The family of this 95-nucleotide sequence from Peptacetobacter hiranonis is "Glycine riboswitch aptamer". Rfam's curators write: This family represents the bacterial glycine riboswitch. Glycine riboswitches usually consist of two metabolite-binding aptamers domains with similar structures in tandem. The aptamers cooperatively bind glycine to regulate the expression of downstream genes. In Bacillus subtilis, this riboswitch is found upstream of the gcvT operon which controls glycine degradation.

[Rfam]
RNA sequence: AUUAGGAACUCUGGAGAGUCUCCAAAAAAGGGGCGCCGAAGGUGUACGCAAACUAAGUUUGCAAAUCUCUCAGGCAAAAGGACAGAGCAGUAAGG
Numbered sequence: 001a002u003u004a005g006g007a008a009c010u011c012u013g014g015a016g017a018g019u020c021u022c023c024a025a026a027a028a029a030g031g032g033g034c035g036c037c038g039a040a041g042g043u044g045u046a047c048g049c050a051a052a053c054u055a056a057g058u059u060u061g062c063a064a065a066u067c068u069c070u071c072a073g074g075c076a077a078a079a080g081g082a083c084a085g086a087g088c089a090g091u092a093a094g095g
Base pairs, nucleotide, nucleotide: 009087010086011085012084013083020033021032022031023030035075036074037073038071039070042069044067048062049061050060051059052058

It scores 63 bits against the family's covariance model.